[Rfam]
ZMP/ZTP riboswitch aptamer (pfl RNA motif): an 87-nucleotide RNA sequence from Actinoplanes derwentensis.
RNA sequence: AAGACACGCAGCGACUGGCGGCACGGGGAUGGUCGAACCAUCGGGGAGCUGCUCGUCACGAGGGAGUCGACCGCCUGGGCUCCCCGC
Numbered sequence: 001a002a003g004a005c006a007c008g009c010a011g012c013g014a015c016u017g018g019c020g021g022c023a024c025g026g027g028g029a030u031g032g033u034c035g036a037a038c039c040a041u042c043g044g045g046g047a048g049c050u051g052c053u054c055g056u057c058a059c060g061a062g063g064g065a066g067u068c069g070a071c072c073g074c075c076u077g078g079g080c081u082c083c084c085c086g087c
Stems, first nucleotide, its partner, number of pairs: 003057003008052005015045002017075005029041004064082005

Gene Ontology terms of the family: one-carbon metabolic process and regulation of purine nucleotide biosynthetic process. The family's consensus secondary structure is taken from published work.